Record summary
The record is a 96-nucleotide sequence from Nicotiana sylvestris, which matches "MIR6152 microRNA precursor family" in Rfam. Rfam links the family to the GO terms miRNA-mediated post-transcriptional gene silencing and RISC complex. NCBI's taxonomy places the organism under Eukaryota, Pentapetalae, Solanales, Nicotianoideae, Nicotiana.
RNA sequence: UGGACAGAUUAUGGCAUUCGACUAUAUUCACGGCGUGGCAUAGGGGAUUACAUUGUUUUUAAAUGAAAAGUAAAUCAACUAACAUAAUAGACUCCU
Numbered sequence: 001u002g003g004a005c006a007g008a009u010u011a012u013g014g015c016a017u018u019c020g021a022c023u024a025u026a027u028u029c030a031c032g033g034c035g036u037g038g039c040a041u042a043g044g045g046g047a048u049u050a051c052a053u054u055g056u057u058u059u060u061a062a063a064u065g066a067a068a069a070g071u072a073a074a075u076c077a078a079c080u081a082a083c084a085u086a087a088u089a090g091a092c093u094c095c096u
Stems, first nucleotide, its partner, number of pairs: 002095003009090004014085001017082002020080001023077001026075003030071002034065003037059002040056004